[Rfam]
Shown here is a 116-nucleotide RNA, a member of the family "RtT RNA". A reference for the family is Bosl and Kersten (1991), "A novel RNA product of the tyrT operon of Escherichia coli", Nucleic Acids Res. It scores 62 bits against the family's covariance model. Rfam 15.1 lists 651 matches to the family in 204 species. From the family's description: This family represents a bacterial cis-regulatory element known as RtT RNA. The exact function of RtT is unknown although it is thought that it may be involved in changing the cellular response in relation to amino acid starvation.
Nucleotides: 116
Base pairs, nucleotide, nucleotide: 015107016106017105019103020102021101023099033092034091036089040087041086042085043084047058065080066079067078068077069076070075
Number, partner (000 for none) and nucleotide at each position: 001000a002000g003000c004000u005000g006000u007000a008000g009000u010000c011000a012000g013000g014000c015107g016106u017105g018000a019103a020102g021101g022000g023099u024000u025000c026000g027000a028000a029000c030000c031000u032000g033092c034091a035000g036089c037000a038000g039000g040087u041086u042085u043084g044000a045000g046000u047058u048000a049000a050000g051000c052000g053000a054000a055000a056000g057000c058047g059000a060000a061000a062000c063000a064000a065080c066079g067078u068077u069076g070075u071000g072000a073000u074000a075070g076069c077068a078067a079066c080065g081000g082000c083000c084043c085042g086041g087040a088000g089036g090000g091034u092033g093000a094000u095000a096000a097000u098000c099023a100000u101021c102020c103019u104000g105017c106016a107015c108000g109000a110000c111000c112000c113000a114000c115000c116000a